[Rfam]
RNA sequence: UAUAGGAGGAAGGCAAAUGCGAAGCAUUUCUUAAAAUGCCUUCCGACGACAUGCCGCCGAACGCAGGUGAGGGGGCGAUACCUUAU
Numbered sequence: 001u002a003u004a005g006g007a008g009g010a011a012g013g014c015a016a017a018u019g020c021g022a023a024g025c026a027u028u029u030c031u032u033a034a035a036a037u038g039c040c041u042u043c044c045g046a047c048g049a050c051a052u053g054c055c056g057c058c059g060a061a062c063g064c065a066g067g068u069g070a071g072g073g074g075g076c077g078a079u080a081c082c083u084u085a086u
Base pairs, nucleotide, nucleotide: 008044009043010042011041012040013039015029016028017027018026019025053076054075055074057072058071061068062067
This 86-nucleotide sequence from Roseburia sp. 1XD42-69 belongs to the Rfam family "GA-cis RNA".
NCBI's taxonomy places the organism under Bacteria, Bacillota, Clostridia, Lachnospirales, Roseburia.
The base pairs follow the family's consensus structure, which is taken from published work.